[Rfam]
RNA sequence: UUAUACAAAAAGCCGAAUCCCCGGAUACCCGGGGUACGGGGGACAAAUUUUUUUGGGGUGAAUCCAAUUCGGUAGUCAGUAGUCAGUAGUCGGUAGUCAGAUUUAAGAAGGAAAUCACCAAAGGUGAUUUCCAACAAACAAUCCCACAACCGACAACCCACUACCUACUACUGUUUUGGUAGGGUACCCUCAACCCGAACCCAUCAGCUAACCUCGGAGGCUAAAGGAGGGAUUCU
Number, nucleotide and partner (000 for none) at each position: 001u000002u000003a000004u000005a000006c000007a000008a000009a000010a000011a222012g221013c220014c219015g000016a000017a000018u000019c034020c033021c032022c031023g030024g029025a000026u000027a000028c000029c024030c023031g022032g021033g020034g019035u000036a000037c216038g215039g214040g213041g212042g000043a000044c000045a000046a000047a054048u000049u000050u000051u000052u000053u000054u047055g000056g202057g201058g200059u000060g000061a000062a000063u000064c179065c178066a177067a176068u000069u000070c000071g000072g000073u000074a000075g000076u000077c000078a000079g000080u000081a000082g000083u000084c000085a000086g000087u000088a000089g000090u000091c000092g000093g000094u000095a000096g000097u000098c000099a000100g000101a000102u000103u000104u000105a000106a000107g000108a000109a000110g000111g000112a000113a000114a000115u000116c000117a000118c000119c000120a000121a000122a000123g000124g000125u000126g000127a000128u000129u000130u000131c000132c000133a000134a000135c000136a000137a000138a000139c000140a000141a000142u000143c000144c000145c000146a000147c000148a000149a000150c000151c000152g000153a000154c000155a000156a000157c000158c000159c000160a000161c000162u000163a000164c000165c000166u000167a000168c000169u000170a000171c000172u000173g000174u000175u000176u067177u066178g065179g064180u000181a000182g196183g195184g194185u193186a000187c000188c000189c000190u000191c000192a000193a185194c184195c183196c182197g000198a000199a000200c058201c057202c056203a000204u000205c000206a000207g000208c000209u000210a000211a000212c041213c040214u039215c038216g037217g000218a000219g014220g013221c012222u011223a000224a000225a000226g000227g000228a000229g000230g000231g000232a000233u000234u000235c000236u000